[Rfam]
RNA sequence: ACCGCCACGGAUGGCGGUGGUUCCAAACAGCAGCGAGAUUUGUGUUGUGCACAAAUCUCGUCGUUGAACAGUGUACACGGACGUACGCUGUUCAAC
Numbered sequence: 001a002c003c004g005c006c007a008c009g010g011a012u013g014g015c016g017g018u019g020g021u022u023c024c025a026a027a028c029a030g031c032a033g034c035g036a037g038a039u040u041u042g043u044g045u046u047g048u049g050c051a052c053a054a055a056u057c058u059c060g061u062c063g064u065u066g067a068a069c070a071g072u073g074u075a076c077a078c079g080g081a082c083g084u085a086c087g088c089u090g091u092u093c094a095a096c
Base pairs, nucleotide, nucleotide: 001018002017003016004015005014006013034060035059036058037057038056039055040054041053042052043051044050063096064095065094066093067092068091069090070089071088072087073086074085075084076083
RNA: TD-2 RNA